[Rfam]
RNA sequence: GGGGAACGGAGUAGCACACCUCCACGUGGGGUUCCCUGGGCAACGUUGCAAUUCCCUGGAACUGCAACGGCUAAGAGGCUACU
Numbered sequence: 001g002g003g004g005a006a007c008g009g010a011g012u013a014g015c016a017c018a019c020c021u022c023c024a025c026g027u028g029g030g031g032u033u034c035c036c037u038g039g040g041c042a043a044c045g046u047u048g049c050a051a052u053u054c055c056c057u058g059g060a061a062c063u064g065c066a067a068c069g070g071c072u073a074a075g076a077g078g079c080u081a082c083u
Stems, first nucleotide, its partner, number of pairs: 001037007019029002044069007
The family of this 83-nucleotide RNA sequence from Argiope bruennichi is "HDV ribozyme from F. prausnitzii". For this family Rfam cites "Widespread occurrence of self-cleaving ribozymes" (Webb et al., Science, 2009). Rfam links the family to the GO term catalytic activity.